[Rfam]
RNA sequence: UGGCGCCCAACGUGGGGCUGGAUACGAGGGAAUCCUGUGAGGAAGAGAGCGCGUAACACGGCCGGCAGUCAAAGUGAAAGAAAAACCUUCCAGCUGCCGCGGGAACCUGCCGCGUCGGCAAUAAAGGUAAGCGUUGCGUUCGAAUAUGGGACAAGAAUUAAGCCAACAUGAACUUUAUGUAGAACAGUUAAAAAAGGCUCUAAAGACACGGGGAGUAAAGGUUAAGGGUAAUGAUUUACUCAAAUUCUUUGAUUUUGUAAAGGAUACCUGCCCUU
Numbered sequence: 001u002g003g004c005g006c007c008c009a010a011c012g013u014g015g016g017g018c019u020g021g022a023u024a025c026g027a028g029g030g031a032a033u034c035c036u037g038u039g040a041g042g043a044a045g046a047g048a049g050c051g052c053g054u055a056a057c058a059c060g061g062c063c064g065g066c067a068g069u070c071a072a073a074g075u076g077a078a079a080g081a082a083a084a085a086c087c088u089u090c091c092a093g094c095u096g097c098c099g100c101g102g103g104a105a106c107c108u109g110c111c112g113c114g115u116c117g118g119c120a121a122u123a124a125a126g127g128u129a130a131g132c133g134u135u136g137c138g139u140u141c142g143a144a145u146a147u148g149g150g151a152c153a154a155g156a157a158u159u160a161a162g163c164c165a166a167c168a169u170g171a172a173c174u175u176u177a178u179g180u181a182g183a184a185c186a187g188u189u190a191a192a193a194a195a196g197g198c199u200c201u202a203a204a205g206a207c208a209c210g211g212g213g214a215g216u217a218a219a220g221g222u223u224a225a226g227g228g229u230a231a232u233g234a235u236u237u238a239c240u241c242a243a244a245u246u247c248u249u250u251g252a253u254u255u256u257g258u259a260a261a262g263g264a265u266a267c268c269u270g271c272c273c274u275u
Base pairs, nucleotide, nucleotide: 006030007029008028012025013024014023035049036048038046085128086127087126088124089123093119094118095117098114099113100112101111102110134154135153136152139150140149141148142147159202160201162198163197164196209251210250211249212248213247214246215245216244219237220236221235222234223233224232260275261274262273263272265270
The family of this 275-nucleotide RNA sequence is "Mason-Pfizer monkey virus packaging signal". The family has 9 seed sequences and 2,921 matches in Rfam 15.1.